[Rfam]
RNA: Mammalian CPEB3 ribozyme
Organism: Alligator sinensis
Nucleotides: 075
Base pairs, nucleotide, nucleotide: 012041013040014039015038018075023070024069025037026036027035047064048063049062050061051060052059053058
Number, partner (000 for none) and nucleotide at each position: 001000u002000g003000c004000a005000g006000g007000u008000u009000u010000c011000a012041g013040a014039c015038c016000a017000c018075a019000c020000c021000a022000g023070a024069a025037g026036u027035g028000c029000u030000c031000a032000c033000u034000a035027c036026a037025u038015g039014g040013u041012c042000c043000c044000u045000g046000u047064c048063a049062g050061a051060u052059u053058c054000c055000a056000a057000u058053g059052a060051a061050u062049c063048u064047g065000u066000g067000a068000a069024u070023u071000a072000c073000a074000c075018u